Shown here is a 131-nucleotide RNA from Triplophysa rosa, a member of the family "Small Cajal body specific RNA 8".
Rfam links the family to the GO terms RNA processing, Cajal body and nucleolus.
Taxonomically the source falls in Triplophysa (Eukaryota, Vertebrata, Actinopteri, Cobitoidei).
It is annotated as a small Cajal body RNA.
scaRNAs are a specific class of small nuclear RNAs which localise to the Cajal bodies and guide the modification of RNA polymerase II transcribed spliceosomal RNAs U1, U2, U4, U5 and U12. U92 belong to the H/ACA box class of guide RNAs as it has the predicted hairpin-hinge-hairpin-tail structure, conserved H/ACA-box motifs and is found associated with GAR1.
The literature on the family includes a 2002 paper in EMBO J by Darzacq et al., "Cajal body-specific small nuclear RNAs: a novel class of 2'-O-methylation and pseudouridylation guide RNAs".
RNA sequence: UGGGAGACUGAUACAUGAGCGGUCCUGAGCAGUGACCCGCCCAUCACAAGAUCUCCCUAUAUCAAACCUGCUCUCUGAUGACCGGUGCGAACUGAGAGAAAUCGCCACGGACAGAUACGGAGCAGACAACC
Numbered sequence: 001u002g003g004g005a006g007a008c009u010g011a012u013a014c015a016u017g018a019g020c021g022g023u024c025c026u027g028a029g030c031a032g033u034g035a036c037c038c039g040c041c042c043a044u045c046a047c048a049a050g051a052u053c054u055c056c057c058u059a060u061a062u063c064a065a066a067c068c069u070g071c072u073c074u075c076u077g078a079u080g081a082c083c084g085g086u087g088c089g090a091a092c093u094g095a096g097a098g099a100a101a102u103c104g105c106c107a108c109g110g111a112c113a114g115a116u117a118c119g120g121a122g123c124a125g126a127c128a129a130c131c
Stems, first nucleotide, its partner, number of pairs: 002057006015044003021037004068125007082110003087105004